[Rfam]
RNA sequence: ACAGUCUGAAAAUCUUGGGGUCUUCUGUGGCCCCUGGUGCAAUAACUGUGCCGACAGCAGAUGGAGCGUUAAACUCAUUGCCUACGAUAAACUGUGGGGAGUGAUACCCAUGUUUCUAUAAUC
Dot-bracket structure: .....(.(.(...(....((((......))))....).....)..).)..............(.(((((.....(((((...(((........)))...))))).....))))).).......